[Rfam]
RNA: c-di-AMP riboswitch aptamer (ydaO/yuaA leader)
Organism: Streptomyces sp. WAC06614
Nucleotides: 173
Base pairs, nucleotide, nucleotide: 011158012157013156014155025153026152027151028150029149030148035085086138087137088136094113095112097110098109099108116132117131118130119129
Number, partner (000 for none) and nucleotide at each position: 001000g002000u003000c004000g005000c006000g007000c008000a009000a010000g011158c012157g013156c014155c015000g016000g017000a018000g019000g020000c021000a022000g023000g024000a025153g026152c027151g028150g029149g030148g031000g032000a033000c034000c035085c036000a037000a038000g039000g040000u041000u042000u043000u044000u045000g046000c047000c048000g049000g050000g051000a052000c053000c054000g055000g056000c057000c058000a059000u060000u061000g062000a063000g064000a065000g066000a067000u068000g069000g070000u071000c072000a073000c074000g075000g076000g077000a078000a079000c080000g081000g082000c083000u084000a085035g086138g087137g088136g089000u090000u091000a092000a093000g094113c095112c096000a097110c098109g099108c100000g101000c102000u103000a104000g105000g106000u107000c108099g109098c110097g111000a112095g113094g114000c115000c116132g117131g118130g119129c120000a121000c122000c123000u124000c125000a126000u127000u128000g129119g130118c131117c132116c133000g134000a135000a136088c137087c138086c139000g140000a141000c142000a143000g144000c145000u146000c147000a148030c149029c150028u151027c152026g153025u154000a155014g156013g157012c158011g159000u160000c161000g162000g163000u164000g165000a166000g167000g168000a169000g170000a171000a172000g173000u